Shown here is a 119-nucleotide sequence from Paraburkholderia lacunae, a member of the family "TPP riboswitch aptamer (THI element)". The literature on the family includes a 2002 paper in J Biol Chem by Rodionov et al., "Comparative genomics of thiamin biosynthesis in procaryotes. New genes and regulatory mechanisms".

[Rfam]
RNA sequence: CUGCUAACGCGGGGGUCCUGCGUCGCACGGUGGUGGGAGGUCCGUGUUGCGUGGGUGAGAAAUACCCUUUGAACCUGAUCUGGAUAAUGCCAGCGCAGGGAAGCGUACGGAGUUCGCAC
Numbered sequence: 001c002u003g004c005u006a007a008c009g010c011g012g013g014g015g016u017c018c019u020g021c022g023u024c025g026c027a028c029g030g031u032g033g034u035g036g037g038a039g040g041u042c043c044g045u046g047u048u049g050c051g052u053g054g055g056u057g058a059g060a061a062a063u064a065c066c067c068u069u070u071g072a073a074c075c076u077g078a079u080c081u082g083g084a085u086a087a088u089g090c091c092a093g094c095g096c097a098g099g100g101a102a103g104c105g106u107a108c109g110g111a112g113u114u115c116g117c118a119c
Stems, first nucleotide, its partner, number of pairs: 007106004011068004016062001017055007074099004080093004